[Rfam]
RNA sequence: CAUACUUUGCCAACACUCUGGCCCUUACUGGAUCCUUCCCUUUGAGGGUUGGCUCUCUAUGGUUCGGGCCUAUUUUGGUGCAAAGAAGAUCAUACCUCUGUAAGACCUCAUACUCAUCGCGGCAUCCUGUUAGUGGAUGCAGCGAUCCAUCUCACCUGGUCUACAU
Numbered sequence: 001c002a003u004a005c006u007u008u009g010c011c012a013a014c015a016c017u018c019u020g021g022c023c024c025u026u027a028c029u030g031g032a033u034c035c036u037u038c039c040c041u042u043u044g045a046g047g048g049u050u051g052g053c054u055c056u057c058u059a060u061g062g063u064u065c066g067g068g069c070c071u072a073u074u075u076u077g078g079u080g081c082a083a084a085g086a087a088g089a090u091c092a093u094a095c096c097u098c099u100g101u102a103a104g105a106c107c108u109c110a111u112a113c114u115c116a117u118c119g120c121g122g123c124a125u126c127c128u129g130u131u132a133g134u135g136g137a138u139g140c141a142g143c144g145a146u147c148c149a150u151c152u153c154a155c156c157u158g159g160u161c162u163a164c165a166u
Base pairs, nucleotide, nucleotide: 007083008082009081020070021069022068023067024066027063028062029061104161105160106159107158117145118144119143120142122140123139124138125137126136127135
This 166-nucleotide RNA sequence from Heterodermia speciosa belongs to the Rfam family "Small nucleolar RNA snR80". Lineage of the source: Eukaryota > Fungi > Dikarya > Pezizomycotina > Heterodermia. The family's consensus secondary structure was predicted with WAR. Its family is annotated with nucleolus and RNA processing in the Gene Ontology. The match comes from Rfam's covariance-model search (49 bits). It is annotated as an H/ACA-box small nucleolar RNA. Its Rfam clan is "SNORA28 clan".